SAM riboswitch aptamer (S box leader): a 109-nucleotide sequence from Rothia dentocariosa. Pairs were carried over by alignment from the consensus structure, which is taken from published work. Lineage of the source: Bacteria > Bacillati > Actinomycetota > Micrococcaceae > Rothia. The match comes from Rfam's covariance-model search (49 bits).

RNA sequence: UAUCUAUCCAGAGCGACCGAGAGAUCUGGCUCUUAGACGUCGCAGCAACCUCGCCAGCCUCCACCCGUUAGGUGGACGGACAAGGUGCUCCCGCCAGAACCGAUAGAAG
Dot-bracket structure: (.((((((....(((((...(((..[[[[)))......)))))((((.((.................................))))))...(]]]]...))))))).)
Numbered sequence: 001u002a003u004c005u006a007u008c009c010a011g012a013g014c015g016a017c018c019g020a021g022a023g024a025u026c027u028g029g030c031u032c033u034u035a036g037a038c039g040u041c042g043c044a045g046c047a048a049c050c051u052c053g054c055c056a057g058c059c060u061c062c063a064c065c066c067g068u069u070a071g072g073u074g075g076a077c078g079g080a081c082a083a084g085g086u087g088c089u090c091c092c093g094c095c096a097g098a099a100c101c102g103a104u105a106g107a108a109g
Stems, first nucleotide, its partner, number of pairs: 001109001003107006013043005021032003026097004044089004049085002093101001